[Rfam]
A member of the RNA family "mir-877 microRNA precursor family" from Hordeum vulgare, 85 nucleotides long. It scores 47 bits against the family's covariance model. The base pairs follow the family's consensus structure, which was predicted with RNAalifold.
RNA sequence: GAAGAGAAGAAGGAGAAGGAGGAGGAGGAGAAGGACUGGAAGGUCCUCGACCUUCCAGUCCUUCUCCUCCUCCUCCUUCUCCUCC
Number, nucleotide and partner (000 for none) at each position: 001g000002a000003a000004g081005a080006g079007a078008a077009g076010a000011a000012g075013g074014a000015g072016a000017a000018g070019g069020a068021g067022g066023a065024g064025g063026a062027g061028g000029a059030g000031a000032a000033g000034g000035a000036c000037u057038g056039g055040a054041a053042g052043g051044u050045c049046c000047u000048c000049g045050a044051c043052c042053u041054u040055c039056c038057a037058g000059u029060c000061c027062u026063u025064c024065u023066c022067c021068u020069c019070c018071u000072c015073c000074u013075c012076c009077u008078u007079c006080u005081c004082c000083u000084c000085c000
The literature on the family includes a 2010 paper in BMC Genomics by Linsen et al., "Small RNA expression and strain specificity in the rat". Rfam 15.1 lists 186 matches to the family in 115 species. The organism belongs to Hordeum vulgare, within Eukaryota.